[Rfam]
RNA sequence: GUGAAAUGAUGAUGAAGUUUAUCCAUUCUCUGAGUGUGCUGCUCUGCCCUUCCUACAGCUCUGAGUUCCUGUUCUAGGAACUCUUGAGUUAUGUAACCUCCAGAUACCCUCCAGACUUGCAGUGUUCUACUGUGGAUGGCAGGUGUGUGUGGUGGUCUUACUAGUAGGAAGAGAUGGAGUUAGCAGAGGUGAAACCCCAUUAUUUGGGGUCCCAUCUUACCAAGACGAAUGACUGGUGUCUGAUCAC
Numbered sequence: 001g002u003g004a005a006a007u008g009a010u011g012a013u014g015a016a017g018u019u020u021a022u023c024c025a026u027u028c029u030c031u032g033a034g035u036g037u038g039c040u041g042c043u044c045u046g047c048c049c050u051u052c053c054u055a056c057a058g059c060u061c062u063g064a065g066u067u068c069c070u071g072u073u074c075u076a077g078g079a080a081c082u083c084u085u086g087a088g089u090u091a092u093g094u095a096a097c098c099u100c101c102a103g104a105u106a107c108c109c110u111c112c113a114g115a116c117u118u119g120c121a122g123u124g125u126u127c128u129a130c131u132g133u134g135g136a137u138g139g140c141a142g143g144u145g146u147g148u149g150u151g152g153u154g155g156u157c158u159u160a161c162u163a164g165u166a167g168g169a170a171g172a173g174a175u176g177g178a179g180u181u182a183g184c185a186g187a188g189g190u191g192a193a194a195c196c197c198c199a200u201u202a203u204u205u206g207g208g209g210u211c212c213c214a215u216c217u218u219a220c221c222a223a224g225a226c227g228a229a230u231g232a233c234u235g236g237u238g239u240c241u242g243a244u245c246a247c
Stems, first nucleotide, its partner, number of pairs: 010246004017239002020236001024231005030224002034220002038184004042179005048173001050170007058089004063084001065081006093159001096156003106146002108143001112139001115137001117135008186218006195209004
Small nucleolar RNA SNORD17: a 247-nucleotide RNA from Monodelphis domestica. Rfam's curators put it in the seed alignment. The source organism's lineage runs through Eukaryota, Gnathostomata, Euteleostomi, Amniota and Monodelphis. By type it is a C/D-box small nucleolar RNA. Gene Ontology terms of the family: nucleolus and RNA processing.